RNA sequence: GCCCUGGGCUUGUGCUCAGGGAGUGAAUGAUGGGUUCUGACCCCCAUGCACCCCUGGCAUCACUGGCCCCAUCCUUCACCCCCUGCCAACCACACUUGCCCUGUGCCU
Number, nucleotide and partner (000 for none) at each position: 001g106002c105003c000004c103005u000006g101007g100008g099009c098010u000011u094012g093013u092014g091015c000016u000017c085018a084019g082020g081021g080022a000023g079024u078025g077026a076027a075028u000029g073030a072031u071032g070033g069034g068035u000036u000037c000038u000039g067040a000041c066042c065043c000044c000045c000046a060047u059048g058049c057050a000051c000052c000053c000054c000055u000056g000057g049058c048059a047060u046061c000062a000063c000064u000065g042066g041067c039068c034069c033070c032071a031072u030073c029074c000075u027076u026077c025078a024079c023080c021081c020082c019083c000084u018085g017086c000087c000088a000089a000090c000091c014092a013093c012094a011095c000096u000097u000098g009099c008100c007101c006102u000103g004104u000105g002106c001107c000108u000